[Rfam]
RNA: c-di-AMP riboswitch aptamer (ydaO/yuaA leader)
Organism: Cohnella sp. AR92
RNA sequence: CCAUUCCCGUCGCUGAAUGGCCGUAGCGGCCAACGGGGGAACCAAACGCGGACGAAGCUUGUGUGAGAGCAAGCUUGCGGCCCGCAUGGGGUGAAUCCUUCCGCAGCGCUUGCGCUUGCGGAAGAAGGGCGACUCUCACCGCCCGAAUCCGUCAGCUAACCUCGUAAGCGAUAGCGAGAGAGGCC
Numbered sequence: 001c002c003a004u005u006c007c008c009g010u011c012g013c014u015g016a017a018u019g020g021c022c023g024u025a026g027c028g029g030c031c032a033a034c035g036g037g038g039g040a041a042c043c044a045a046a047c048g049c050g051g052a053c054g055a056a057g058c059u060u061g062u063g064u065g066a067g068a069g070c071a072a073g074c075u076u077g078c079g080g081c082c083c084g085c086a087u088g089g090g091g092u093g094a095a096u097c098c099u100u101c102c103g104c105a106g107c108g109c110u111u112g113c114g115c116u117u118g119c120g121g122a123a124g125a126a127g128g129g130c131g132a133c134u135c136u137c138a139c140c141g142c143c144c145g146a147a148u149c150c151g152u153c154a155g156c157u158a159a160c161c162u163c164g165u166a167a168g169c170g171a172u173a174g175c176g177a178g179a180g181a182g183g184c185c
Base pairs, nucleotide, nucleotide: 011170012169013168014167018032019031020030033165034164035163036162037161038160043088044087089150090149091148097124099122100121127144128143129142130141